The record is a 63-nucleotide sequence from Metabacillus lacus, which matches "Bacillaceae-1 RNA" in Rfam.

Nucleotides: 063
Base pairs, nucleotide, nucleotide: 009045010044011043012042013041014040022036023035024034025033026032050062051061052060053059
Number, partner (000 for none) and nucleotide at each position: 001000g002000g003000g004000c005000a006000c007000u008000g009045g010044c011043c012042g013041g014040c015000u016000a017000a018000g019000a020000u021000c022036g023035g024034c025033a026032c027000g028000u029000c030000c031000u032026g033025u034024g035023c036022c037000a038000a039000u040014g041013c042012c043011g044010g045009c046000a047000c048000u049000a050062g051061g052060a053059c054000g055000u056000c057000c058000u059053g060052u061051c062050c063000g
Rfam 15.1 lists 5,721 matches to the family in 247 species. By type it is a small RNA. Pairs were carried over by alignment from the consensus structure, which is taken from published work.